RNA sequence: CUCAUGCAGUCAUUCUCCAAAAGAAAGCACUUUCUGUUGUCUGAAAGCAGAGUGCCUUCUUUUGGAGCGUUACUGUUUGAGA
Numbered sequence: 001c002u003c004a005u006g007c008a009g010u011c012a013u014u015c016u017c018c019a020a021a022a023g024a025a026a027g028c029a030c031u032u033u034c035u036g037u038u039g040u041c042u043g044a045a046a047g048c049a050g051a052g053u054g055c056c057u058u059c060u061u062u063u064g065g066a067g068c069g070u071u072a073c074u075g076u077u078u079g080a081g082a
Stems, first nucleotide, its partner, number of pairs: 001081004006076005012070002015067003019063007027055007037047002
RNA: mir-515 microRNA precursor family